[Rfam]
The record is a 101-nucleotide RNA sequence, which matches "PhotoRC-II RNA" in Rfam.
The family's consensus secondary structure is taken from published work.
The sequence is in the family's curated seed alignment.
It is annotated as a cis-regulatory element.
RNA sequence: CACCCUUGCUACAAACUGCUCGCAAACCGAGACCUACAGGCAGUAUAAUAAUUCGUCUCUCAUAUCCAGAAGGGAAGGGAUUUCUGGAAAUAUAGUAUCGC
Numbered sequence: 001c002a003c004c005c006u007u008g009c010u011a012c013a014a015a016c017u018g019c020u021c022g023c024a025a026a027c028c029g030a031g032a033c034c035u036a037c038a039g040g041c042a043g044u045a046u047a048a049u050a051a052u053u054c055g056u057c058u059c060u061c062a063u064a065u066c067c068a069g070a071a072g073g074g075a076a077g078g079g080a081u082u083u084c085u086g087g088a089a090a091u092a093u094a095g096u097a098u099c100g101c
Stems, first nucleotide, its partner, number of pairs: 016043005022037001029059005065088007